The family of this 115-nucleotide RNA sequence from Ophiocordyceps australis is "U5 spliceosomal RNA". Gene Ontology terms of the family: spliceosomal tri-snRNP complex assembly and U5 snRNP. U5 RNA is a component of both types of known spliceosome. The precise function of this molecule is unknown, though it is known that the 5' loop is required for splice site selection and p220 binding, and that both the 3' stem-loop and the Sm site are important for Sm protein binding and cap methylation. The family has 180 seed sequences and 28,527 matches in Rfam 15.1. The family's RNA type in Rfam is spliceosomal small nuclear RNA.

[Rfam]
RNA sequence: GUGGAGUUGGACCUUCCAUGCGGACUAAUUUCUUGCCUUUUACCAGAGAUUACCGUGGAAUGGCCAAACAAGCUCCAAUUACCUAAUCUUUGGAAACCUCUUGAUUUCGAAUCAU
Numbered sequence: 001g002u003g004g005a006g007u008u009g010g011a012c013c014u015u016c017c018a019u020g021c022g023g024a025c026u027a028a029u030u031u032c033u034u035g036c037c038u039u040u041u042a043c044c045a046g047a048g049a050u051u052a053c054c055g056u057g058g059a060a061u062g063g064c065c066a067a068a069c070a071a072g073c074u075c076c077a078a079u080u081a082c083c084u085a086a087u088c089u090u091u092g093g094a095a096a097c098c099u100c101u102u103g104a105u106u107u108c109g110a111a112u113c114a115u
Base pairs, nucleotide, nucleotide: 003076004075005074006073008066009065010064012062014060015059016058017057018056026052027051028050029049030048031047032046033045102114103113104112